RNA sequence: UCGCACCCCGGAGAUGGCAUUCCUCCGAAUAACCGCCGGGUCGACCGGCUGAUGAUGCCUACGAGAUC
Numbered sequence: 001u002c003g004c005a006c007c008c009c010g011g012a013g014a015u016g017g018c019a020u021u022c023c024u025c026c027g028a029a030u031a032a033c034c035g036c037c038g039g040g041u042c043g044a045c046c047g048g049c050u051g052a053u054g055a056u057g058c059c060u061a062c063g064a065g066a067u068c
Stems, first nucleotide, its partner, number of pairs: 010026004016059006035049004
Dot-bracket structure: .........[[[[..((((((.]]]]........((((.......))))....)))))).........
Shown here is a 68-nucleotide RNA from Paraburkholderia sp. DHOC27, a member of the family "Fluoride riboswitch aptamer (crcB RNA motif)". It scores 54 bits against the family's covariance model. Pairs were carried over by alignment from the consensus structure, which is taken from published work.